[Rfam]
A member of the RNA family "7SK RNA" from Neogale vison, 333 nucleotides long.
Its Rfam clan is "7SK clan".
The family has 45 seed sequences and 49,373 matches in Rfam 15.1.
Rfam's curators write: 7SK was discovered as an abundant small nuclear RNA in the mid-70s but a possible function has only recently been suggested. Two independent studies have found that 7SK RNA binds the CDK9/cyclin T complex (known as elongation factor P-TEFb). P-TEFb activates transcription by phosphorylating the C-terminal domain of RNA polymerase II. This process is negatively regulated by the 7SK RNP. The secondary structure of 7SK RNA shown here was proposed by Wasserman and Steitz on the basis of chemical modification and enzymatic cleavage experiments. This family contains a number of annotated pseudogenes and 7SK derived repeats. The threshold is artificially high to minimise the pseudogene count.
The family's RNA type in Rfam is non-coding RNA gene.
The source organism's lineage runs through Eukaryota, Eumetazoa, Tetrapoda, Mustelinae and Neogale.
RNA sequence: GGAUAGGAGGGUGAUCUGGCUGCGACAUCUGUCACUCUACUGAUUGCCAGUCUUGAUUUGGCUCAUCUGGCUGGCUAAUUGGGUGUCCCCUUCCUCCCUCACUGCUCCAUGUGCGUCCCUCCCGAAGCUGUGUGCUCAGUCGAAGAGGAUGACCUUCCCCGAUAGAGGAGAGGACCGUUCUUCAGUCAAGAGUAUACGAGUAGCUGCGCUCCCCUGCUAGAACCUCCAAACAAGCUCUCAAGGUCCACGUGUAGGAGAACGUAGGGUAGUCAAGCUUCCAAGUCUCCAGACACAUCCAAAUGAGGCUGUGUGUGUGGCAGUCUGCCUUUCUUU
Numbered sequence: 001g002g003a004u005a006g007g008a009g010g011g012u013g014a015u016c017u018g019g020c021u022g023c024g025a026c027a028u029c030u031g032u033c034a035c036u037c038u039a040c041u042g043a044u045u046g047c048c049a050g051u052c053u054u055g056a057u058u059u060g061g062c063u064c065a066u067c068u069g070g071c072u073g074g075c076u077a078a079u080u081g082g083g084u085g086u087c088c089c090c091u092u093c094c095u096c097c098c099u100c101a102c103u104g105c106u107c108c109a110u111g112u113g114c115g116u117c118c119c120u121c122c123c124g125a126a127g128c129u130g131u132g133u134g135c136u137c138a139g140u141c142g143a144a145g146a147g148g149a150u151g152a153c154c155u156u157c158c159c160c161g162a163u164a165g166a167g168g169a170g171a172g173g174a175c176c177g178u179u180c181u182u183c184a185g186u187c188a189a190g191a192g193u194a195u196a197c198g199a200g201u202a203g204c205u206g207c208g209c210u211c212c213c214c215u216g217c218u219a220g221a222a223c224c225u226c227c228a229a230a231c232a233a234g235c236u237c238u239c240a241a242g243g244u245c246c247a248c249g250u251g252u253a254g255g256a257g258a259a260c261g262u263a264g265g266g267u268a269g270u271c272a273a274g275c276u277u278c279c280a281a282g283u284c285u286c287c288a289g290a291c292a293c294a295u296c297c298a299a300a301u302g303a304g305g306c307u308g309u310g311u312g313u314g315u316g317g318c319a320g321u322c323u324g325c326c327u328u329u330c331u332u333u
Stems, first nucleotide, its partner, number of pairs: 001108003007100005013093002018090002024087008035074002037070003042067003046062003116173002118168004122139001124137002127135002140162003147158003203275003209269002212266006224257004230252003234248001298333003302328005309319003